[Rfam]
Mammalian CPEB3 ribozyme: a 78-nucleotide RNA from Laticauda laticaudata. Rfam's curators write: The mammalian CPEB3 ribozyme is a self cleaving RNA located in the second intron of the CPEB3 gene which belongs to a family of genes regulating messenger RNA polyadenylation.

RNA sequence: AUUGAACAAUUGGGGGCCAUAGAAGGAGCGUUCACGUCGCAGCCCCUGUCAGGUAUCUGUUUACCUGCGAAUCCUUCU
Numbered sequence: 001a002u003u004g005a006a007c008a009a010u011u012g013g014g015g016g017c018c019a020u021a022g023a024a025g026g027a028g029c030g031u032u033c034a035c036g037u038c039g040c041a042g043c044c045c046c047u048g049u050c051a052g053g054u055a056u057c058u059g060u061u062u063a064c065c066u067g068c069g070a071a072u073c074c075u076u077c078u
Base pairs, nucleotide, nucleotide: 013046014045015044016043017042021078022077023076024075025074026073027072028040029039030038050067051066052065053064054063055062